[Rfam]
RNA sequence: AAAGCAGGUUACAAGUAUAGCUCUUCAUUUUGUGGAAUUACUGCUCCUUACUACCCUGCUAAAGAGCAGUCAUGUUGAUGCCUCUGAUUUUACCUUUAUGAAAGUAAAAAUAACAGCCCGACAAAGACAGUC
Numbered sequence: 001a002a003a004g005c006a007g008g009u010u011a012c013a014a015g016u017a018u019a020g021c022u023c024u025u026c027a028u029u030u031u032g033u034g035g036a037a038u039u040a041c042u043g044c045u046c047c048u049u050a051c052u053a054c055c056c057u058g059c060u061a062a063a064g065a066g067c068a069g070u071c072a073u074g075u076u077g078a079u080g081c082c083u084c085u086g087a088u089u090u091u092a093c094c095u096u097u098a099u100g101a102a103a104g105u106a107a108a109a110a111u112a113a114c115a116g117c118c119c120g121a122c123a124a125a126g127a128c129a130g131u132c
Stems, first nucleotide, its partner, number of pairs: 003060006018043003024037003070126001073123005085110001088109006095102002
Background
Shown here is a 132-nucleotide RNA from Mus spicilegus, a member of the family "Small nucleolar RNA SNORA69". The source organism's lineage runs through Eukaryota, Deuterostomia, Teleostomi, Muroidea and Mus. It is annotated as an H/ACA-box small nucleolar RNA. Rfam 15.1 lists 808 matches to the family in 584 species. U69 is a member of the H/ACA class of small nucleolar RNAs (snoRNAs) which act as guides in the the modification of uridines to pseudouridines.